[Rfam]
RNA: Nuclear RNase P
Organism: Cinara cedri
RNA sequence: UCAACAAGAAUCUUGCUUUAGGGGUUUACACACGGAGUACUUUGUUACUUAAUUAACCUCGGGAAGGUCUGAGAUAAAUUCACUAACCUUUUAGCCAGAGGCCCUCUUGAUAAAUUUGGGCAGGAGGACCAGAAAUUAGUCCAGUUCUAAAAUUUUUGGGUCUGAGACGCCAUCGGCUGAGACUAUAAUUUUAGAACUGUUGAAAUCUCCUGUGAAUCGCAUUUUUAGUUCAAUUUGCAAGGUUCUAGCUUUAUGUUAGUAUAACUCAAUUCAGACUAAUCUCUUGUUGA
Numbered sequence: 001u002c003a004a005c006a007a008g009a010a011u012c013u014u015g016c017u018u019u020a021g022g023g024g025u026u027u028a029c030a031c032a033c034g035g036a037g038u039a040c041u042u043u044g045u046u047a048c049u050u051a052a053u054u055a056a057c058c059u060c061g062g063g064a065a066g067g068u069c070u071g072a073g074a075u076a077a078a079u080u081c082a083c084u085a086a087c088c089u090u091u092u093a094g095c096c097a098g099a100g101g102c103c104c105u106c107u108u109g110a111u112a113a114a115u116u117u118g119g120g121c122a123g124g125a126g127g128a129c130c131a132g133a134a135a136u137u138a139g140u141c142c143a144g145u146u147c148u149a150a151a152a153u154u155u156u157u158g159g160g161u162c163u164g165a166g167a168c169g170c171c172a173u174c175g176g177c178u179g180a181g182a183c184u185a186u187a188a189u190u191u192u193a194g195a196a197c198u199g200u201u202g203a204a205a206u207c208u209c210c211u212g213u214g215a216a217u218c219g220c221a222u223u224u225u226u227a228g229u230u231c232a233a234u235u236u237g238c239a240a241g242g243u244u245c246u247a248g249c250u251u252u253a254u255g256u257u258a259g260u261a262u263a264a265c266u267c268a269a270u271u272c273a274g275a276c277u278a279a280u281c282u283c284u285u286g287u288u289g290a
Stems, first nucleotide, its partner, number of pairs: 001290004007284003012241005021060005035050005040044001069274005078217004087101005102119002107114001120213007138198003242262002245259004